Rfam assigns this 99-nucleotide RNA from Brevibacillus fluminis to the family "Purine riboswitch aptamer".
The match comes from Rfam's covariance-model search (69 bits).
On this family, see Reining et al., Nature 2013: "Three-state mechanism couples ligand and temperature sensing in riboswitches".
NCBI's taxonomy places the organism under Bacteria, Bacillati, Bacillota, Paenibacillaceae, Brevibacillus.
The family's consensus secondary structure is taken from published work.
About the family: Riboswitches are metabolite binding domains within certain messenger RNAs that serve as precision sensors for their corresponding targets. Allosteric rearrangement of mRNA structure is mediated by ligand binding, and this results in modulation of gene expression. A class of riboswitches that selectively recognises guanine and becomes saturated at concentrations as low as 5 nM. In Bacillus subtilis, this mRNA motif is located on at least five separate transcriptional units that together encode 17 genes that are mostly involved in purine transport and purine nucleotide biosynthesis. It has also been shown that some members of this family are specific for adenine instead.
[Rfam]
RNA sequence: AGUUAAUAGCAUUGUCUAAUUCGUAUAUCCUCAAGAUAUGGUCUGAGGGUCUCUACAAGGAACCGUAAAUUCCUAACUACGAAUGAUAUGCUGACGUAU
Numbered sequence: 001a002g003u004u005a006a007u008a009g010c011a012u013u014g015u016c017u018a019a020u021u022c023g024u025a026u027a028u029c030c031u032c033a034a035g036a037u038a039u040g041g042u043c044u045g046a047g048g049g050u051c052u053c054u055a056c057a058a059g060g061a062a063c064c065g066u067a068a069a070u071u072c073c074u075a076a077c078u079a080c081g082a083a084u085g086a087u088a089u090g091c092u093g094a095c096g097u098a099u
Stems, first nucleotide, its partner, number of pairs: 019084007029048005034042001058074005